[Rfam]
The family of this 176-nucleotide RNA sequence from Oryza meridionalis is "MIR807 microRNA precursor family". Its family is annotated with miRNA-mediated post-transcriptional gene silencing and RISC complex in the Gene Ontology. Rfam 15.1 lists 1,514 matches to the family in 13 species. The family's consensus secondary structure was predicted with WAR.
RNA sequence: AACCACACUAUCGAUAAAUGGAUUUACCCGUGAGAUGAUAUGGUUGUUCCAUCUAGGAUGAGGACGUUGCAUCCUAUUAAUUUCGUGCGAUGGCUAAUAAUGGGAUGCCAUGUCCUCGUCAUAUGUGAAACAACUACGUCAUUUUGCGGGUGAAUCCAUUAAUUGAUAGUGUGGUU
Numbered sequence: 001a002a003c004c005a006c007a008c009u010a011u012c013g014a015u016a017a018a019u020g021g022a023u024u025u026a027c028c029c030g031u032g033a034g035a036u037g038a039u040a041u042g043g044u045u046g047u048u049c050c051a052u053c054u055a056g057g058a059u060g061a062g063g064a065c066g067u068u069g070c071a072u073c074c075u076a077u078u079a080a081u082u083u084c085g086u087g088c089g090a091u092g093g094c095u096a097a098u099a100a101u102g103g104g105a106u107g108c109c110a111u112g113u114c115c116u117c118g119u120c121a122u123a124u125g126u127g128a129a130a131c132a133a134c135u136a137c138g139u140c141a142u143u144u145u146g147c148g149g150g151u152g153a154a155u156c157c158a159u160u161a162a163u164u165g166a167u168a169g170u171g172u173g174g175u176u
Stems, first nucleotide, its partner, number of pairs: 001176007009168007017160003021156008030147004035142005041136008051126002054123002057120002063114003069108011086097001